Plastid-ycf2 5UTR RNA: a 75-nucleotide RNA sequence from Castanea mollissima. It scores 74 bits against the family's covariance model. The literature on the family includes a 2023 paper in Plant Commun by Richter et al., "Retrograde signaling in plants: A critical review focusing on the GUN pathway and beyond".

[Rfam]
RNA sequence: GUGCAUUUGAUAGGAAUUGAACUUACAAAUUUGCCAAUUAUGAGUUGGGCACUUUAACCAUUUAGCCAUGGAUGC
Numbered sequence: 001g002u003g004c005a006u007u008u009g010a011u012a013g014g015a016a017u018u019g020a021a022c023u024u025a026c027a028a029a030u031u032u033g034c035c036a037a038u039u040a041u042g043a044g045u046u047g048g049g050c051a052c053u054u055u056a057a058c059c060a061u062u063u064a065g066c067c068a069u070g071g072a073u074g075c
Stems, first nucleotide, its partner, number of pairs: 003075006011025004040069003044066006